[Rfam]
RNA sequence: GAGAAGAAGUAGAAACACCCGUUUCUCACCUGAGUUGACAAUUACGUCCUUUGGUUGAUAAAUACAGUUAUUACAGAUUAAGUCUGUAGUUUUCGGCGGGUGGAUAAUGUAUCUACCCGUCGUUUUUAUUUACG
Numbered sequence: 001g002a003g004a005a006g007a008a009g010u011a012g013a014a015a016c017a018c019c020c021g022u023u024u025c026u027c028a029c030c031u032g033a034g035u036u037g038a039c040a041a042u043u044a045c046g047u048c049c050u051u052u053g054g055u056u057g058a059u060a061a062a063u064a065c066a067g068u069u070a071u072u073a074c075a076g077a078u079u080a081a082g083u084c085u086g087u088a089g090u091u092u093u094c095g096g097c098g099g100g101u102g103g104a105u106a107a108u109g110u111a112u113c114u115a116c117c118c119g120u121c122g123u124u125u126u127u128a129u130u131u132a133c134g
Stems, first nucleotide, its partner, number of pairs: 011026006028055003037048003095121010
Dot-bracket structure: ..........((((((....)))))).(((......(((......)))....))).......................................((((((((((.......)))))))))).............
RNA: Ribosomal protein L20 leader
Organism: Aerococcus suis